[Rfam]
RNA: Alphaproteobacteria transfer-messenger RNA
RNA sequence: GCCCUUCCCUUGGGCUGAGGAAACCACUAUAUCAGCGUUGCCGGCUUUCGGGUCGGCUAUGGCGAUAAAUGAGCGGUGUAAUAAACCUAUUGGACCCGGGGGCGGUACCCGGCGCCUCCACCAAAAACCGGCGGUCUUAAAGGCCGGCUUUUGAUGGGGGCGAAACAGGAUCGACAAGGGUGUAAAGAUCGUCUUUUUGCUCGGCAUUGUACCGCCGUUAUCGGGCUAAAAUUGUAGUUGCAAACGACAACUAUGCGGAAGCUCGUCUCGCUGCUUAAUCGCGGUGUGACACUUCAAUCAAAGUCCUAGUGGUUCGCACCUCUAGGCGGGGUCCGAAGGCACCUGGCAACAGAAGCCUUCACC
Numbered sequence: 001g002c003c004c005u006u007c008c009c010u011u012g013g014g015c016u017g018a019g020g021a022a023a024c025c026a027c028u029a030u031a032u033c034a035g036c037g038u039u040g041c042c043g044g045c046u047u048u049c050g051g052g053u054c055g056g057c058u059a060u061g062g063c064g065a066u067a068a069a070u071g072a073g074c075g076g077u078g079u080a081a082u083a084a085a086c087c088u089a090u091u092g093g094a095c096c097c098g099g100g101g102g103c104g105g106u107a108c109c110c111g112g113c114g115c116c117u118c119c120a121c122c123a124a125a126a127a128c129c130g131g132c133g134g135u136c137u138u139a140a141a142g143g144c145c146g147g148c149u150u151u152u153g154a155u156g157g158g159g160g161c162g163a164a165a166c167a168g169g170a171u172c173g174a175c176a177a178g179g180g181u182g183u184a185a186a187g188a189u190c191g192u193c194u195u196u197u198u199g200c201u202c203g204g205c206a207u208u209g210u211a212c213c214g215c216c217g218u219u220a221u222c223g224g225g226c227u228a229a230a231a232u233u234g235u236a237g238u239u240g241c242a243a244a245c246g247a248c249a250a251c252u253a254u255g256c257g258g259a260a261g262c263u264c265g266u267c268u269c270g271c272u273g274c275u276u277a278a279u280c281g282c283g284g285u286g287u288g289a290c291a292c293u294u295c296a297a298u299c300a301a302a303g304u305c306c307u308a309g310u311g312g313u314u315c316g317c318a319c320c321u322c323u324a325g326g327c328g329g330g331g332u333c334c335g336a337a338g339g340c341a342c343c344u345g346g347c348a349a350c351a352g353a354a355g356c357c358u359u360c361a362c363c
Stems, first nucleotide, its partner, number of pairs: 040057007061201005071195003074191004086180003090177003096112005113162007202217004207228001209226001212224002329344004335360006